About this RNA: The family of this 90-nucleotide sequence from Lysinibacillus sp. BF-4 is "TPP riboswitch aptamer (THI element)".

[Rfam]
RNA sequence: AGGAAGCACUAGGGGUGCCAGUUUGGCUGAGAGAGUCCCUUAGAACCUGACCUAGCUCAUACUAGCGUAGGAAAGUGUAACGCCCCCGCU
Numbered sequence: 001a002g003g004a005a006g007c008a009c010u011a012g013g014g015g016u017g018c019c020a021g022u023u024u025g026g027c028u029g030a031g032a033g034a035g036u037c038c039c040u041u042a043g044a045a046c047c048u049g050a051c052c053u054a055g056c057u058c059a060u061a062c063u064a065g066c067g068u069a070g071g072a073a074a075g076u077g078u079a080a081c082g083c084c085c086c087c088g089c090u
Stems, first nucleotide, its partner, number of pairs: 006078005011040004016034001017027004046071004052065004